[Rfam]
RNA sequence: CAGCGUUCUCAGGGCGGGGCGGAACUCCCCACCGGCGGUGACAGGGCGAAAGCCCUGAAGCCCGCGAGCGCCCGGGGGUCCGACAGGGCUUCCGGGGUCAGCAGAUCCGGUGCGAUUCCGGGGCCGACGGUCACAGUCCGGAUGGAAGAGAGCGCGG
Numbered sequence: 001c002a003g004c005g006u007u008c009u010c011a012g013g014g015c016g017g018g019g020c021g022g023a024a025c026u027c028c029c030c031a032c033c034g035g036c037g038g039u040g041a042c043a044g045g046g047c048g049a050a051a052g053c054c055c056u057g058a059a060g061c062c063c064g065c066g067a068g069c070g071c072c073c074g075g076g077g078g079u080c081c082g083a084c085a086g087g088g089c090u091u092c093c094g095g096g097g098u099c100a101g102c103a104g105a106u107c108c109g110g111u112g113c114g115a116u117u118c119c120g121g122g123g124c125c126g127a128c129g130g131u132c133a134c135a136g137u138c139c140g141g142a143u144g145g146a147a148g149a150g151a152g153c154g155c156g157g
Stems, first nucleotide, its partner, number of pairs: 003155008017029003031137002033126002035065004060124002068102002106122005128140003
RNA: FMN riboswitch aptamer (RFN element)
Organism: Teichococcus deserti